Notes: U8 small nucleolar RNA: a 137-nucleotide sequence from Molossus molossus. Gene Ontology terms of the family: nucleolus and RNA processing. Taxonomically the source falls in Molossus (Eukaryota, Gnathostomata, Tetrapoda, Theria). Rfam 15.1 lists 1,597 matches to the family in 457 species. Rfam classes the family as a C/D-box small nucleolar RNA.
[Rfam]
RNA sequence: UCGUAAGGUGGGAUAAUCCUGACCUGUUCCUCCUUUUGGAGGGCAGAUUGGAACAUGAUGAUUGGAGUUUGCAUGAUUUGUGAUUAUCGUUUCUGCAGUAAUCAGGACUUAAAUCACCCUGAUUGCUCCUUUCUGAU
Numbered sequence: 001u002c003g004u005a006a007g008g009u010g011g012g013a014u015a016a017u018c019c020u021g022a023c024c025u026g027u028u029c030c031u032c033c034u035u036u037u038g039g040a041g042g043g044c045a046g047a048u049u050g051g052a053a054c055a056u057g058a059u060g061a062u063u064g065g066a067g068u069u070u071g072c073a074u075g076a077u078u079u080g081u082g083a084u085u086a087u088c089g090u091u092u093c094u095g096c097a098g099u100a101a102u103c104a105g106g107a108c109u110u111a112a113a114u115c116a117c118c119c120u121g122a123u124u125g126c127u128c129c130u131u132u133c134u135g136a137u
Stems, first nucleotide, its partner, number of pairs: 024046003028043006075093002079089002081086001098126009